RNA sequence: UGUCACGGUGACGACUCCAUAAAAUUCAAGCUCAACAGACCGGAUUGCAGGCUUCUCUAUUCUUAGAGUAAGUUUGCGUGUCGAGUACCCCGCUGAACUGAGUGACU
Numbered sequence: 001u002g003u004c005a006c007g008g009u010g011a012c013g014a015c016u017c018c019a020u021a022a023a024a025u026u027c028a029a030g031c032u033c034a035a036c037a038g039a040c041c042g043g044a045u046u047g048c049a050g051g052c053u054u055c056u057c058u059a060u061u062c063u064u065a066g067a068g069u070a071a072g073u074u075u076g077c078g079u080g081u082c083g084a085g086u087a088c089c090c091c092g093c094u095g096a097a098c099u100g101a102g103u104g105a106c107u
Base pairs, nucleotide, nucleotide: 002106003105004104005103006102
Rfam assigns this 107-nucleotide sequence from Solanum commersonii to the family "Small nucleolar RNA Z107/R87". By type it is a C/D-box small nucleolar RNA. The source organism's lineage runs through Eukaryota, Streptophytina, Solanales, Solanoideae and Solanum. A reference for the family is Barneche et al. (2001), "Identification of 66 box C/D snoRNAs in Arabidopsis thaliana: extensive gene duplications generated multiple isoforms predicting new ribosomal RNA 2'-O-methylation sites", J Mol Biol.